Background: The record is a 46-nucleotide RNA sequence from Streptomyces benahoarensis, which matches "L31-Actinobacteria ribosomal protein leader" in Rfam. It is annotated as a cis-regulatory leader. The match comes from Rfam's covariance-model search (38 bits). Pairs were carried over by alignment from the consensus structure, which is taken from published work.
RNA sequence: UCGGCCCCGGUUCACGUGACGCAAACCCGCGGCACGACCCGGAGCA
Numbered sequence: 001u002c003g004g005c006c007c008c009g010g011u012u013c014a015c016g017u018g019a020c021g022c023a024a025a026c027c028c029g030c031g032g033c034a035c036g037a038c039c040c041g042g043a044g045c046a
Base pairs, nucleotide, nucleotide: 004045005044007042008041009040010039015036016035017034018033020031021030022029